[Rfam]
RNA sequence: GCCCCAGAUAGGCCAGCUUCGAAACCUGGCCGAAAAGCGGGACACCUUCGCCCGCCUGCUGGGGCACCUUUUGCGAAGG
Numbered sequence: 001g002c003c004c005c006a007g008a009u010a011g012g013c014c015a016g017c018u019u020c021g022a023a024a025c026c027u028g029g030c031c032g033a034a035a036a037g038c039g040g041g042a043c044a045c046c047u048u049c050g051c052c053c054g055c056c057u058g059c060u061g062g063g064g065c066a067c068c069u070u071u072u073g074c075g076a077a078g079g
Stems, first nucleotide, its partner, number of pairs: 001065007011031006037055005045079006
Dot-bracket structure: (((((((...((((((.........)))))).....(((((...[[[[[[)))))...)))))))........]]]]]]
RNA: int-alpA RNA
Organism: Oryzisolibacter propanilivorax